Rfam assigns this 61-nucleotide sequence from Paraburkholderia phymatum to the family "Fluoride riboswitch aptamer (crcB RNA motif)". NCBI's taxonomy places the organism under Bacteria, Betaproteobacteria, Burkholderiales, Burkholderiaceae, Paraburkholderia phymatum. The base pairs follow the family's consensus structure, which is taken from published work.
[Rfam]
RNA sequence: GCGCGCGCCGGAGAUGGCAUUCUCCUUAACCGCCCUCGUGGCUGAUGAUGCCUGCUUCGCC
Dot-bracket structure: .........[[[[..((((((]]]]......(((.....)))....)))))).........
Numbered sequence: 001g002c003g004c005g006c007g008c009c010g011g012a013g014a015u016g017g018c019a020u021u022c023u024c025c026u027u028a029a030c031c032g033c034c035c036u037c038g039u040g041g042c043u044g045a046u047g048a049u050g051c052c053u054g055c056u057u058c059g060c061c
Stems, first nucleotide, its partner, number of pairs: 010025004016052006032042003